[Rfam]
RNA sequence: AGUGAAGAUAGAGGUGCAGGCCUCAAGAGUAAAAGCCCGGAGAAUGAUGAGAUUCCGGGAAGGGCUUUGAAAGGGAUGUCUGCCGAAGUGGGGAAAGGCUCAUAGCUUUUCUCGCUGGUUCUGUACUGAAGAAGUGCAGGACUGUCAAGAUCUUGUGUCUUGGAGGGCUAUCUCACUG
Numbered sequence: 001a002g003u004g005a006a007g008a009u010a011g012a013g014g015u016g017c018a019g020g021c022c023u024c025a026a027g028a029g030u031a032a033a034a035g036c037c038c039g040g041a042g043a044a045u046g047a048u049g050a051g052a053u054u055c056c057g058g059g060a061a062g063g064g065c066u067u068u069g070a071a072a073g074g075g076a077u078g079u080c081u082g083c084c085g086a087a088g089u090g091g092g093g094a095a096a097g098g099c100u101c102a103u104a105g106c107u108u109u110u111c112u113c114g115c116u117g118g119u120u121c122u123g124u125a126c127u128g129a130a131g132a133a134g135u136g137c138a139g140g141a142c143u144g145u146c147a148a149g150a151u152c153u154u155g156u157g158u159c160u161u162g163g164a165g166g167g168c169u170a171u172c173u174c175a176c177u178g
Stems, first nucleotide, its partner, number of pairs: 006173006016083006023076002032068007087116011117143011145163007
Dot-bracket structure: .....((((((....((((((.((.......(((((((.......................)))))))......)).))))))...(((((((((((........)))))))))))(((((((((((.....))))))))))).(((((((.....)))))))....)))))).....

This 178-nucleotide sequence from Mesobacillus campisalis belongs to the Rfam family "Lysine riboswitch aptamer". From the family's description: Riboswitches are metabolite binding domains within certain messenger RNAs that serve as precision sensors for their corresponding targets. Its family is annotated with lysine biosynthetic process in the Gene Ontology.